A member of the RNA family "glmS glucosamine-6-phosphate activated ribozyme aptamer" from Clostridium chauvoei, 284 nucleotides long. Pairs were carried over by alignment from the consensus structure, which is taken from published work. It scores 95 bits against the family's covariance model. The family's RNA type in Rfam is riboswitch. This entry contains a glucosamine-6-phosphate activated ribozyme that is found in the mRNA for GlmS. GlmS is an enzyme that uses fructose-6-phosphate and glutamine to generate glucosamine-6-phosphate. The ribozyme catalyses self cleavage of the glmS mRNA that is thought to regulate GlmS activity.
[Rfam]
RNA sequence: AAAUUAAUAAAAGCGCCAGGACUUAAGGAUUUGAAUUUUAAAAUGAAACUUAGCUAAAGCUAAGUAAGUUCGCUUAACCAAAUCAUAGAUUUGGAAUUUUAAGAUGAAACUUAGCGAAGGCUAAGUAAGUUCGCUUAGCCAAAUCAUAGAUUUGGAAGCUCACUUAAGUUGACGAGGUUGGGGAGUAUCGAGACUUCGGCGGGUGCCCCACGGUAUCGCACUACCGUUAACGGUUAAUAAAACUAUGAAGUGAUUUAUAGCACAAUAUUAACUUGGUGUAAAAA
Numbered sequence: 001a002a003a004u005u006a007a008u009a010a011a012a013g014c015g016c017c018a019g020g021a022c023u024u025a026a027g028g029a030u031u032u033g034a035a036u037u038u039u040a041a042a043a044u045g046a047a048a049c050u051u052a053g054c055u056a057a058a059g060c061u062a063a064g065u066a067a068g069u070u071c072g073c074u075u076a077a078c079c080a081a082a083u084c085a086u087a088g089a090u091u092u093g094g095a096a097u098u099u100u101a102a103g104a105u106g107a108a109a110c111u112u113a114g115c116g117a118a119g120g121c122u123a124a125g126u127a128a129g130u131u132c133g134c135u136u137a138g139c140c141a142a143a144u145c146a147u148a149g150a151u152u153u154g155g156a157a158g159c160u161c162a163c164u165u166a167a168g169u170u171g172a173c174g175a176g177g178u179u180g181g182g183g184a185g186u187a188u189c190g191a192g193a194c195u196u197c198g199g200c201g202g203g204u205g206c207c208c209c210a211c212g213g214u215a216u217c218g219c220a221c222u223a224c225c226g227u228u229a230a231c232g233g234u235u236a237a238u239a240a241a242a243c244u245a246u247g248a249a250g251u252g253a254u255u256u257a258u259a260g261c262a263c264a265a266u267a268u269u270a271a272c273u274u275g276g277u278g279u280a281a282a283a284a
Stems, first nucleotide, its partner, number of pairs: 020170008179210005188199004211226005232273005243260007